[Rfam]
RNA sequence: GGGUGUCCGCGAUUUUACGUAUGGACAGGUGAUAGCGCUGGUCGGGCCGCCAGCG
Numbered sequence: 001g002g003g004u005g006u007c008c009g010c011g012a013u014u015u016u017a018c019g020u021a022u023g024g025a026c027a028g029g030u031g032a033u034a035g036c037g038c039u040g041g042u043c044g045g046g047c048c049g050c051c052a053g054c055g
Stems, first nucleotide, its partner, number of pairs: 005026004009020002036055007
nhaA-I RNA: a 55-nucleotide RNA sequence.
Pairs were carried over by alignment from the consensus structure, which is taken from published work.
Acidobacteria, Alphaproteobacteria, Betaproteobacteria and Gammaproteobacteria, Verrucomicrobia, cand. division NC10.